[Rfam]
RNA: Bacterial RNase P class A
RNA sequence: UCGAGAGGAUGAGGUGAUCGCGGUCGGACCCCUCGGGGUCGCAGAUCGAGGAAAGUCCGGGCUCCAAAGGGCAGGGUGCUUGCGAAAUGCAAGUCGGGGCGACCCGCAGGAAAGUGCCACAGAAAGCAAACCGCCGGCGUACGCGUCGGUAAGGGUGAAAGGGUGCGGUAAGAGCGCACCGGGCCCCCGGUGACGGGGGUCGCAGGGUAAACCCCACUCGGAGCAAGGCCGAACAGAGCCGCUCGCUGGACCCUCGGGGAAGGCGAGCUAGGGUAGCCCGCCCUCGUGCUCGGGUAGUGCCGCGAAGAAGAAUGAUCACCACCCGGGGGAGGCGACGAACUCGGGGACAGGACCCGGCUUACGACCCUCUCGCCCGC
Number, nucleotide and partner (000 for none) at each position: 001u000002c372003g371004a370005g369006a368007g367008g366009a000010u364011g362012a000013g320014g319015u318016g317017a316018u315019c314020g000021c048022g047023g046024u045025c044026g000027g042028a000029c000030c000031c000032c000033u000034c000035g000036g000037g000038g000039u000040c000041g000042c027043a000044g025045a024046u023047c022048g021049a000050g000051g000052a000053a360054a359055g358056u000057c357058c356059g355060g354061g353062c223063u222064c221065c220066a000067a000068a000069g279070g278071g277072c276073a000074g219075g218076g217077u216078g215079c093080u092081u091082g090083c089084g000085a000086a000087a000088u000089g083090c082091a081092a080093g079094u108095c106096g105097g104098g103099g000100c000101g000102a000103c098104c097105c096106g095107c000108a094109g214110g213111a000112a000113a000114g212115u211116g208117c207118c206119a000120c000121a000122g000123a000124a000125a000126g000127c000128a000129a000130a000131c154132c153133g150134c149135c148136g147137g146138c145139g144140u000141a000142c000143g000144c139145g138146u137147c136148g135149g134150u133151a000152a000153g132154g131155g000156u000157g000158a000159a000160a000161g000162g180163g179164u178165g177166c176167g175168g000169u000170a000171a000172g000173a000174g000175c167176g166177c165178a164179c163180c162181g203182g201183g200184c199185c198186c197187c196188c195189g194190g000191u000192g000193a000194c189195g188196g187197g186198g185199g184200u183201c182202g000203c181204a000205g000206g118207g117208u116209a000210a000211a115212c114213c110214c109215c078216a077217c076218u075219c074220g065221g064222a063223g062224c000225a000226a000227g301228g300229c299230c297231g000232a000233a000234c000235a000236g291237a290238g289239c288240c000241g000242c000243u000244c000245g000246c000247u000248g000249g000250a000251c000252c000253c000254u000255c000256g000257g000258g000259g000260a000261a000262g000263g000264c000265g000266a000267g000268c000269u000270a284271g283272g282273g281274u280275a000276g072277c071278c070279c069280g274281c273282c272283c271284u270285c000286g000287u000288g239289c238290u237291c236292g000293g000294g000295u000296a000297g230298u000299g229300c228301c227302g000303c000304g000305a000306a000307g000308a000309a000310g000311a000312a000313u000314g019315a018316u017317c016318a015319c014320c013321a000322c000323c000324c000325g000326g000327g000328g000329g000330a000331g000332g000333c000334g000335a000336c000337g000338a000339a000340c000341u000342c000343g000344g000345g000346g000347a000348c000349a000350g000351g000352a000353c061354c060355c059356g058357g057358c055359u054360u053361a000362c011363g000364a010365c000366c008367c007368u006369c005370u004371c003372g002373c000374c000375c000376g000377c000